mir-14 microRNA precursor family: a 65-nucleotide RNA sequence from Pediculus humanus. Rfam links the family to the GO terms miRNA-mediated post-transcriptional gene silencing and RISC complex. A search with the family's covariance model found it, with a score of 53 bits.
RNA sequence: GGUAGGCGAGAGUGAUAGACUUGGGCUGAGAUUUGUUACCAGUCAGUCUUUUUCUCUCUCCUAUU
Numbered sequence: 001g002g003u004a005g006g007c008g009a010g011a012g013u014g015a016u017a018g019a020c021u022u023g024g025g026c027u028g029a030g031a032u033u034u035g036u037u038a039c040c041a042g043u044c045a046g047u048c049u050u051u052u053u054c055u056c057u058c059u060c061c062u063a064u065u
Stems, first nucleotide, its partner, number of pairs: 001065006008058001010056003015051001017049005025043004